[Rfam]
RNA sequence: CGCUAAGAAGCGCCGCAGGCAGGAGCGGGGGACCCAGGUAAGCGCCGGGGCCGGCCGUCCGUUCAGAGUCAGAGAACGGCACGAACCGGGACCGGCUUGGGGUGAAGCUGUGCGCUAGGCCGCGCAGCCGGGCAACUCAUUGGCCCGAACCCGACAGCUCACCUCGUAGGCGUCGGUGAGGAGAUUC
Numbered sequence: 001c002g003c004u005a006a007g008a009a010g011c012g013c014c015g016c017a018g019g020c021a022g023g024a025g026c027g028g029g030g031g032a033c034c035c036a037g038g039u040a041a042g043c044g045c046c047g048g049g050g051c052c053g054g055c056c057g058u059c060c061g062u063u064c065a066g067a068g069u070c071a072g073a074g075a076a077c078g079g080c081a082c083g084a085a086c087c088g089g090g091a092c093c094g095g096c097u098u099g100g101g102g103u104g105a106a107g108c109u110g111u112g113c114g115c116u117a118g119g120c121c122g123c124g125c126a127g128c129c130g131g132g133c134a135a136c137u138c139a140u141u142g143g144c145c146c147g148a149a150c151c152c153g154a155c156a157g158c159u160c161a162c163c164u165c166g167u168a169g170g171c172g173u174c175g176g177u178g179a180g181g182a183g184a185u186u187c
Base pairs, nucleotide, nucleotide: 011172012171013170014169025167026166027165028164029163030162035099036098037097038096039095100152101151102150108127109126110125111124112123113122130146131145132144133143
Overview:
The family of this 187-nucleotide sequence is "c-di-AMP riboswitch aptamer (ydaO/yuaA leader)". It scores 67 bits against the family's covariance model.